The family of this 57-nucleotide RNA from Candidatus Symbiopectobacterium sp. Dall1.0 is "Lambda phage CIII thermoregulator element". Rfam links the family to the GO terms response to temperature stimulus and regulation of translation. It scores 50 bits against the family's covariance model. From the family's description: There is an evidence supporting presence of a riboswitch upstream of the thermometer.
Nucleotides: 057
Base pairs, nucleotide, nucleotide: 004052005051013049014048015047017046018045019044020043021042022041024039025038026037028035029034
Number, partner (000 for none) and nucleotide at each position: 001000a002000a003000a004052c005051g006000g007000a008000g009000a010000a011000c012000g013049c014048c015047a016000u017046g018045c019044a020043a021042u022041a023000u024039g025038c026037c027000u028035u029034u030000g031000c032000a033000g034029g035028g036000u037026g038025g039024c040000c041022u042021a043020u044019u045018g046017c047015u048014g049013g050000c051005c052004g053000c054000u055000c056000g057000g